Shown here is a 70-nucleotide sequence from Pangasianodon hypophthalmus, a member of the family "mir-338 microRNA precursor family". For this family Rfam cites "The developmental miRNA profiles of zebrafish as determined by small RNA cloning" (Chen et al., Genes Dev, 2005). The family has 36 seed sequences and 1,231 matches in Rfam 15.1. A search with the family's covariance model found it, with a score of 71 bits.

[Rfam]
RNA sequence: CUGGGAACAAUAUCCUGGUGCUGAUGAGUGUGACGAGAAAAAACUCCAGCAUCAGUGAUUUUGUUGCAAG
Numbered sequence: 001c002u003g004g005g006a007a008c009a010a011u012a013u014c015c016u017g018g019u020g021c022u023g024a025u026g027a028g029u030g031u032g033a034c035g036a037g038a039a040a041a042a043a044c045u046c047c048a049g050c051a052u053c054a055g056u057g058a059u060u061u062u063g064u065u066g067c068a069a070g
Stems, first nucleotide, its partner, number of pairs: 006065005012059003015055009